The family of this 103-nucleotide RNA from Erysipelothrix rhusiopathiae is "Purine riboswitch aptamer".
[Rfam]
RNA sequence: CUAUCAAUGUAUUAAUAACCAAAUAUAAUACCCAUAAUAUGGUUGGGUAGUAUCUACCGAUGUACCGUAAACACAUCGACUAUCGUGGUGAAAACUCGCAAGA
Numbered sequence: 001c002u003a004u005c006a007a008u009g010u011a012u013u014a015a016u017a018a019c020c021a022a023a024u025a026u027a028a029u030a031c032c033c034a035u036a037a038u039a040u041g042g043u044u045g046g047g048u049a050g051u052a053u054c055u056a057c058c059g060a061u062g063u064a065c066c067g068u069a070a071a072c073a074c075a076u077c078g079a080c081u082a083u084c085g086u087g088g089u090g091a092a093a094a095c096u097c098g099c100a101a102g103a
Base pairs, nucleotide, nucleotide: 018089019088020087021086023083024082025081029049030048031047032046033045034044058078059077060076061075062074063073
A search with the family's covariance model found it, with a score of 67 bits. Gene Ontology term of the family: purine nucleobase biosynthetic process. The source organism's lineage runs through Bacteria, Bacillati, Erysipelotrichia, Erysipelotrichaceae and Erysipelothrix rhusiopathiae.